[Rfam]
RNA sequence: CACUCUGGAGAGAGGCGCCAGGCUGCGCCCGCCGAAGGGAUAGCGAUCUCAGGCAACAGGACAGAGGG
Numbered sequence: 001c002a003c004u005c006u007g008g009a010g011a012g013a014g015g016c017g018c019c020a021g022g023c024u025g026c027g028c029c030c031g032c033c034g035a036a037g038g039g040a041u042a043g044c045g046a047u048c049u050c051a052g053g054c055a056a057c058a059g060g061a062c063a064g065a066g067g068g
Stems, first nucleotide, its partner, number of pairs: 001068001003066005014029004031054003034050002038048002
Glycine riboswitch aptamer: a 68-nucleotide RNA sequence from Pseudooceanicola atlanticus.
The organism belongs to Pseudooceanicola, within Bacteria.
Rfam 15.1 lists 9,425 matches to the family in 5,228 species.